[Rfam]
RNA sequence: UUCGAUGAGAGUGAUGGAGUCCACUCGAACCGCCGUAUGAGGCUGAUGACCCCUACUGUGGC
Number, nucleotide and partner (000 for none) at each position: 001u000002u000003c000004g000005a000006u000007g000008a000009g000010a025011g024012u023013g022014a000015u000016g053017g052018a000019g050020u049021c048022c013023a012024c011025u010026c000027g000028a000029a000030c000031c000032g043033c042034c041035g000036u000037a000038u000039g000040a000041g034042g033043c032044u000045g000046a000047u000048g021049a020050c019051c000052c017053c016054u000055a000056c000057u000058g000059u000060g000061g000062c000
Annotation
A member of the RNA family "Fluoride riboswitch aptamer (crcB RNA motif)" from Desulforhabdus amnigena, 62 nucleotides long. Rfam links the family to the GO terms response to fluoride and positive regulation of gene expression. The match comes from Rfam's covariance-model search (45 bits).